[Rfam]
RNA sequence: CCUCUGGAGAGAGCGAUAAGCCACCAAAGGGGUAGACUCUUGAAUCAAGAGUUAAACUCUCAGGUAAAAGGACAGAGG
Numbered sequence: 001c002c003u004c005u006g007g008a009g010a011g012a013g014c015g016a017u018a019a020g021c022c023a024c025c026a027a028a029g030g031g032g033u034a035g036a037c038u039c040u041u042g043a044a045u046c047a048a049g050a051g052u053u054a055a056a057c058u059c060u061c062a063g064g065u066a067a068a069a070g071g072a073c074a075g076a077g078g
Base pairs, nucleotide, nucleotide: 001078002077003076004075005074006073013021014020023065024064025063027060030059031058032057036052037051038050039049040048041047042046
This 78-nucleotide sequence from Ammoniphilus sp. CFH 90114 belongs to the Rfam family "Glycine riboswitch aptamer". Gene Ontology term of the family: glycine biosynthetic process.